RNA sequence: AAUGCAUUCUGGGAUUCUGACUGUGACCUGUGUGUGUCUGAUUCACAUCACAGGCAGAGUUCUAGCUAUGCGU
Numbered sequence: 001a002a003u004g005c006a007u008u009c010u011g012g013g014a015u016u017c018u019g020a021c022u023g024u025g026a027c028c029u030g031u032g033u034g035u036g037u038c039u040g041a042u043u044c045a046c047a048u049c050a051c052a053g054g055c056a057g058a059g060u061u062c063u064a065g066c067u068a069u070g071c072g073u
Stems, first nucleotide, its partner, number of pairs: 009065009021053006030046003
Shown here is a 73-nucleotide sequence from Tribolium castaneum, a member of the family "mir-11 microRNA precursor family". The base pairs follow the family's consensus structure, which was predicted with RNAalifold. The literature on the family includes a 2009 paper in BMC Genomics by Li et al., "Direct sequencing and expression analysis of a large number of miRNAs in Aedes aegypti and a multi-species survey of novel mosquito miRNAs".